The family of this 121-nucleotide RNA from Photobacterium jeanii is "Phenylalanine leader peptide". Gene Ontology term of the family: cellular amino acid metabolic process. Taxonomically the source falls in Photobacterium (Bacteria, Pseudomonadati, Pseudomonadota, Vibrionales). It is annotated as a cis-regulatory leader.

[Rfam]
RNA sequence: GCCAAAACAACCACUGUUCUUCUUUACUUUCUUUUUUAUGUCACCCUAGUGGAGGCUAUUCGUUGCGUGAGAAAGAAAAUAAAGACGAAUAGGAAGCCUCCCAUCAGGGGGGCUUUUUCGU
Numbered sequence: 001g002c003c004a005a006a007a008c009a010a011c012c013a014c015u016g017u018u019c020u021u022c023u024u025u026a027c028u029u030u031c032u033u034u035u036u037u038a039u040g041u042c043a044c045c046c047u048a049g050u051g052g053a054g055g056c057u058a059u060u061c062g063u064u065g066c067g068u069g070a071g072a073a074a075g076a077a078a079a080u081a082a083a084g085a086c087g088a089a090u091a092g093g094a095a096g097c098c099u100c101c102c103a104u105c106a107g108g109g110g111g112g113c114u115u116u117u118u119c120g121u
Stems, first nucleotide, its partner, number of pairs: 016090004021085006028078007036070004044052002054064003093116010
For this family Rfam cites "Nucleotide sequence of the leader region of the phenylalanine operon of Escherichia coli" (Zurawski et al., Proc Natl Acad Sci U S A, 1978).